[Rfam]
RNA sequence: UGAUAUAAGUGUCAAAAGCAAAAGGCGUAUUACAUGCUUGCAUGUAAUACGCCUUUUAUUUUUGACCUGAACAGUUAUGAAGAAGGAGCACGGUAGUGCGGAUUCUUCAUAACUGUAGAAUUGCGAGAGCACCAUGUGCGGAGCAAUUCGUAUAUCA
Numbered sequence: 001u002g003a004u005a006u007a008a009g010u011g012u013c014a015a016a017a018g019c020a021a022a023a024g025g026c027g028u029a030u031u032a033c034a035u036g037c038u039u040g041c042a043u044g045u046a047a048u049a050c051g052c053c054u055u056u057u058a059u060u061u062u063u064g065a066c067c068u069g070a071a072c073a074g075u076u077a078u079g080a081a082g083a084a085g086g087a088g089c090a091c092g093g094u095a096g097u098g099c100g101g102a103u104u105c106u107u108c109a110u111a112a113c114u115g116u117a118g119a120a121u122u123g124c125g126a127g128a129g130c131a132c133c134a135u136g137u138g139c140g141g142a143g144c145a146a147u148u149c150g151u152a153u154a155u156c157a
Base pairs, nucleotide, nucleotide: 001157002156003155004154005153006152007151011066012065013064016061017060018059020057021056022055023054024053025052026051027050028049029048030047031046032045033044034043035042036041071116072115073114074113075112076111077110078109081106082105083104084103088099089098090097091096118149119148120147121146122145123144124143129139130138131137132136
Rfam assigns this 157-nucleotide RNA sequence from Butyrivibrio proteoclasticus to the family "Clostridiales-1 RNA". By type it is a small RNA.